RNA sequence: GGCGGCGCCGGAAGCGCUGCCGGAGAAAGGAG
Numbered sequence: 001g002g003c004g005g006c007g008c009c010g011g012a013a014g015c016g017c018u019g020c021c022g023g024a025g026a027a028a029g030g031a032g
Stems, first nucleotide, its partner, number of pairs: 001021008
RNA: L31-Coriobacteria ribosomal protein leader